[Rfam]
RNA sequence: CGGGCGGAUUCCGAAAAGCCCCGAUAGAGUAGGAA
Numbered sequence: 001c002g003g004g005c006g007g008a009u010u011c012c013g014a015a016a017a018g019c020c021c022c023g024a025u026a027g028a029g030u031a032g033g034a035a
Stems, first nucleotide, its partner, number of pairs: 002021004010034003

Shown here is a 35-nucleotide RNA sequence from Rikenella microfusus, a member of the family "DUF805b RNA". The match comes from Rfam's covariance-model search (40 bits). The family is grouped with related families in Rfam's "DUF805 clan". The organism belongs to Rikenella, within Bacteria. Rfam classes the family as a cis-regulatory element. The base pairs follow the family's consensus structure, which is taken from published work.